[Rfam]
RNA sequence: AUUACAAGCUAUAUAGAGAAUGAAAAAUGGCUACUGGUACUCAAAUGGUACUGGAAGUAAAAAAGAAUAAAUUGAAUAAUAGUUCCAAGUGGUUUACAUUUGGACAAAAAAUUGAGACUUUUAAUUAGUUUGU
Numbered sequence: 001a002u003u004a005c006a007a008g009c010u011a012u013a014u015a016g017a018g019a020a021u022g023a024a025a026a027a028u029g030g031c032u033a034c035u036g037g038u039a040c041u042c043a044a045a046u047g048g049u050a051c052u053g054g055a056a057g058u059a060a061a062a063a064a065g066a067a068u069a070a071a072u073u074g075a076a077u078a079a080u081a082g083u084u085c086c087a088a089g090u091g092g093u094u095u096a097c098a099u100u101u102g103g104a105c106a107a108a109a110a111a112u113u114g115a116g117a118c119u120u121u122u123a124a125u126u127a128g129u130u131u132g133u
Base pairs, nucleotide, nucleotide: 007032008031009030010029011028012027014025039125045121047119048118053068082105083104085103086102087101088100089099090098091097
Shown here is a 133-nucleotide RNA sequence from Amygdalobacter nucleatus, a member of the family "Streptococcus sRNA SpR18". Rfam classes the family as a small RNA. A search with the family's covariance model found it, with a score of 83 bits. The organism belongs to Amygdalobacter, within Bacteria.